[Rfam]
RNA sequence: AGAAAUCCAAUAGGUGCGGCAUGAGAACACAUGACAUGCGACAUGCUUAAUAACAAGUGAUUGUUUCAUGUGUUCUCAGGUCGCCCCUGUAGGGUUUUC
Numbered sequence: 001a002g003a004a005a006u007c008c009a010a011u012a013g014g015u016g017c018g019g020c021a022u023g024a025g026a027a028c029a030c031a032u033g034a035c036a037u038g039c040g041a042c043a044u045g046c047u048u049a050a051u052a053a054c055a056a057g058u059g060a061u062u063g064u065u066u067c068a069u070g071u072g073u074u075c076u077c078a079g080g081u082c083g084c085c086c087c088u089g090u091a092g093g094g095u096u097u098u099c
Stems, first nucleotide, its partner, number of pairs: 007093002011089004016084004023077010
MIR398 microRNA precursor family: a 99-nucleotide sequence from Mikania micrantha. On this family, see Jones-Rhoades and Bartel, Mol Cell 2004: "Computational identification of plant microRNAs and their targets, including a stress-induced miRNA". The base pairs follow the family's consensus structure, which was predicted with WAR.